[Rfam]
RNA sequence: CAAAAUGUUUUCUAGGGUUCCGCAGCAGUAUAUGUUGGUCUGGUCCGAGAGAAAACUCACAGCUAUCGCUGUGUCACGGAAGGAUAAAAGCCUGGGAGAA
Number, nucleotide and partner (000 for none) at each position: 001c000002a000003a000004a000005a000006u000007g056008u055009u054010u053011u052012c051013u000014a000015g046016g045017g000018u000019u000020c043021c042022g040023c037024a036025g035026c034027a033028g000029u000030a000031u000032a000033u027034g026035u025036u024037g023038g000039u000040c022041u000042g021043g020044u000045c016046c015047g000048a000049g000050a000051g012052a011053a010054a009055a008056c007057u000058c073059a072060c071061a070062g069063c068064u000065a000066u000067c000068g063069c062070u061071g060072u059073g058074u000075c095076a000077c098078g000079g000080a000081a093082g092083g091084a000085u000086a000087a000088a000089a000090g000091c083092c082093u081094g000095g075096g000097a000098g077099a000100a000
Background
The family of this 100-nucleotide RNA from Pristimantibacillus lignocellulolyticus is "Guanidine-I riboswitch aptamer". The pairing is the family consensus, mapped onto this sequence. Rfam describes the family as follows. This family represents a conserved RNA structure found upstream of the ykkC and yxkD genes in Bacillus subtilis and related genes in other bacteria. The function of this family is unclear although it has been suggested that it may function to switch on efflux pumps and detoxification systems in response to harmful environmental molecules.